[Rfam]
RNA sequence: GGCAGAGUAGGCUAUCGUGCGUUAAUCCCUUUUGAAAAAGGGUAGCAGUGCCGGCGGAACGGGGAGUUGUCCGCCGGACGAAAAACCGGAAAGGUUUGCGGUGCGGUGGUCGAAUCCCGCUGCU
Numbered sequence: 001g002g003c004a005g006a007g008u009a010g011g012c013u014a015u016c017g018u019g020c021g022u023u024a025a026u027c028c029c030u031u032u033u034g035a036a037a038a039a040g041g042g043u044a045g046c047a048g049u050g051c052c053g054g055c056g057g058a059a060c061g062g063g064g065a066g067u068u069g070u071c072c073g074c075c076g077g078a079c080g081a082a083a084a085a086c087c088g089g090a091a092a093g094g095u096u097u098g099c100g101g102u103g104c105g106g107u108g109g110u111c112g113a114a115u116c117c118c119g120c121u122g123c124u
Stems, first nucleotide, its partner, number of pairs: 001124005010111010020100003048079002051077008062117003083097004

Overview
The record is a 124-nucleotide RNA sequence from Clostridium sp. CAG:226, which matches "THF (Tetrahydrofolate) riboswitch aptamer" in Rfam. Pairs were carried over by alignment from the consensus structure, which is taken from published work. Tetrahydrofolate (THF) riboswitch was first reported for Ames et al. as an RNA motif in 5' untranslated (5'-UTR)regions of folate transport and biosynthesis genes in Firmicutes genomes. Rfam 15.1 lists 747 matches to the family in 747 species. Its family is annotated with tetrahydrofolate metabolic process in the Gene Ontology. The source organism's lineage runs through Bacteria, Bacillati, Bacillota, Clostridia and Clostridium.